[Rfam]
RNA: Selenocysteine transfer RNA
Organism: Folsomia candida
RNA sequence: GCCGGACUGAGCCGUCGUGGUCGACGGGAUAGGCUUCAAUGCCAAUGAGAGGGGACACCUAUUGGGCUAGAAAUAGCCAGAGGUUCGAUUCCUCCUGGCCGGC
Numbered sequence: 001g002c003c004g005g006a007c008u009g010a011g012c013c014g015u016c017g018u019g020g021u022c023g024a025c026g027g028g029a030u031a032g033g034c035u036u037c038a039a040u041g042c043c044a045a046u047g048a049g050a051g052g053g054g055a056c057a058c059c060u061a062u063u064g065g066g067c068u069a070g071a072a073a074u075a076g077c078c079a080g081a082g083g084u085u086c087g088a089u090u091c092c093u094c095c096u097g098g099c100c101g102g103c
Base pairs, nucleotide, nucleotide: 001103002102003101004100005099007097009095012027013026014025015024016023017022028063029062030061031060032059033058065078066077067076068075069074080094081093082092083091